mir-71 microRNA precursor family: a 70-nucleotide sequence from Bemisia tabaci.
RNA sequence: UUCGCGUGAAAGACAUGGGUAGUGAGAUGUGUCGAUAAUUUUGUCUCACUACCUUGUCUUUCAUGCGACU
Numbered sequence: 001u002u003c004g005c006g007u008g009a010a011a012g013a014c015a016u017g018g019g020u021a022g023u024g025a026g027a028u029g030u031g032u033c034g035a036u037a038a039u040u041u042u043g044u045c046u047c048a049c050u051a052c053c054u055u056g057u058c059u060u061u062c063a064u065g066c067g068a069c070u
Stems, first nucleotide, its partner, number of pairs: 008062008017054003021050009
The family's consensus secondary structure was predicted with RNAalifold. The family has 36 seed sequences and 372 matches in Rfam 15.1. For this family Rfam cites "Direct sequencing and expression analysis of a large number of miRNAs in Aedes aegypti and a multi-species survey of novel mosquito miRNAs" (Li et al., BMC Genomics, 2009).